Vault RNA: a 101-nucleotide RNA from Patiria miniata. A search with the family's covariance model found it, with a score of 49 bits. By type it is a non-coding RNA gene. A reference for the family is Stadler et al. (2009), "Evolution of Vault RNAs", Mol Biol Evol.
[Rfam]
RNA sequence: GUGCUGGCGUUGGCCGAGUGGAUACUUCGAUUUCUUCGCAAGCACGUUUAAGCAAACGGGUUCGGAACCUUACAGAUCCACUGGCGCGAUCCGGCUUUUUC
Numbered sequence: 001g002u003g004c005u006g007g008c009g010u011u012g013g014c015c016g017a018g019u020g021g022a023u024a025c026u027u028c029g030a031u032u033u034c035u036u037c038g039c040a041a042g043c044a045c046g047u048u049u050a051a052g053c054a055a056a057c058g059g060g061u062u063c064g065g066a067a068c069c070u071u072a073c074a075g076a077u078c079c080a081c082u083g084g085c086g087c088g089a090u091c092c093g094g095c096u097u098u099u100u101c
Base pairs, nucleotide, nucleotide: 003095004094005093006092007091013085014084015083016082018081019080020079021078026066027065028064029063030062